[Rfam]
Nucleotides: 067
Stems, first nucleotide, its partner, number of pairs: 001067005
Number, partner (000 for none) and nucleotide at each position: 001067g002066u003065g004064c005063a006000a007000a008000u009000g010000a011000u012000g013000u014000a015000a016000a017000c018000u019000u020000c021000a022000g023000u024000u025000u026000c027000a028000c029000u030000g031000a032000g033000u034000a035000a036000c037000a038000g039000u040000g041000a042000u043000g044000u045000u046000u047000c048000c049000a050000a051000a052000g053000g054000a055000a056000c057000c058000a059000c060000u061000g062000a063005u064004g065003c066002a067001c
This 67-nucleotide RNA sequence from Piprites chloris belongs to the Rfam family "Small nucleolar RNA SNORD42". NCBI's taxonomy places the organism under Eukaryota, Craniata, Amniota, Coelurosauria, Piprites. The literature on the family includes a 2002 paper in Mol Cell Biol by Galardi et al., "Purified box C/D snoRNPs are able to reproduce site-specific 2'-O-methylation of target RNA in vitro". From the family's description: snoRNA U42 is found in intron 3 of the ribosomal protein L23a (RPL23a) gene in humans and is also present in mice. It is annotated as a C/D-box small nucleolar RNA. It scores 53 bits against the family's covariance model.